Source information: This 28-nucleotide sequence belongs to the Rfam family "L19-Flavobacteria ribosomal protein leader". For this family Rfam cites "Discovery of 20 novel ribosomal leader candidates in bacteria and archaea" (Eckert and Weinberg, BMC Microbiol, 2020). Rfam's curators put it in the seed alignment. The base pairs follow the family's consensus structure, which is taken from published work. It is annotated as a cis-regulatory leader.
Nucleotides: 028
Base pairs, nucleotide, nucleotide: 001028002027003026004025008023010020011019012018013017
Number, partner (000 for none) and nucleotide at each position: 001028u002027a003026a004025c005000c006000u007000c008023u009000g010020g011019c012018c013017a014000c015000c016000g017013u018012g019011g020010c021000g022000c023008a024000c025004g026003u027002u028001g